Small nucleolar RNA SNORA84: a 135-nucleotide sequence from Coregonus sp. 'balchen'. The source organism's lineage runs through Eukaryota, Metazoa, Deuterostomia, Actinopteri and Coregonus. The family's RNA type in Rfam is H/ACA-box small nucleolar RNA.
RNA sequence: GCCUGGUGGUUCCCAAAGACGGCCAUCCCAUGCCAGUCGCUGGGUUUUGAUUGACAGGCAUAAAUAAACUCUGCGAUUUGAUGCAUGGAUGCUUCAACUCUCCGUAGCCUCCAUAGCCCGGUUGCAGAGACAUAA
Numbered sequence: 001g002c003c004u005g006g007u008g009g010u011u012c013c014c015a016a017a018g019a020c021g022g023c024c025a026u027c028c029c030a031u032g033c034c035a036g037u038c039g040c041u042g043g044g045u046u047u048u049g050a051u052u053g054a055c056a057g058g059c060a061u062a063a064a065u066a067a068a069c070u071c072u073g074c075g076a077u078u079u080g081a082u083g084c085a086u087g088g089a090u091g092c093u094u095c096a097a098c099u100c101u102c103c104g105u106a107g108c109c110u111c112c113a114u115a116g117c118c119c120g121g122u123u124g125c126a127g128a129g130a131c132a133u134a135a
Stems, first nucleotide, its partner, number of pairs: 001059004007049002012044004021034003071127001073125006083117002085114004091108003095104001